The record is a 122-nucleotide sequence from Nocardia huaxiensis, which matches "SAM (S-adenosyl methionine) riboswitch aptamer" in Rfam. The family's consensus secondary structure is taken from published work. Gene Ontology terms of the family: S-adenosylmethionine metabolic process and regulation of gene expression. It scores 105 bits against the family's covariance model. A reference for the family is Weinberg et al. (2008), "The aptamer core of SAM-IV riboswitches mimics the ligand-binding site of SAM-I riboswitches", RNA. SAM-IV is a mRNA element that regulates gene expression via direct sensing of S-adenosylmethionine (SAM or AdoMet). SAM-IV riboswitches share conserved nucleotide positions with the previously described SAM-I riboswitches sequence analysis and molecular recognition experiments suggest that SAM-I and SAM-IV riboswitches share similar ligand binding sites, but have different scaffolds.
[Rfam]
RNA sequence: GGUCAUGAGUACCAGCGUGAAGCCCCGGCUGGCUGGUCGGCAACCCUCCUCCGCGGUGGGGUGCUCCGGGUGACGACCUGGCCCGCACCGCUGGAAAAUUCGUGGUGCGGCAAGUGCGGAUU
Dot-bracket structure: ((((....(.((((((....((......)).)))))))(((..(((.((.....))..))).))).........))))..(((.(((((((..........))))))))))...........
Numbered sequence: 001g002g003u004c005a006u007g008a009g010u011a012c013c014a015g016c017g018u019g020a021a022g023c024c025c026c027g028g029c030u031g032g033c034u035g036g037u038c039g040g041c042a043a044c045c046c047u048c049c050u051c052c053g054c055g056g057u058g059g060g061g062u063g064c065u066c067c068g069g070g071u072g073a074c075g076a077c078c079u080g081g082c083c084c085g086c087a088c089c090g091c092u093g094g095a096a097a098a099u100u101c102g103u104g105g106u107g108c109g110g111c112a113a114g115u116g117c118g119g120a121u122u
Stems, first nucleotide, its partner, number of pairs: 001078004009038001011037006021030002039065003044061003048056002081111003085108007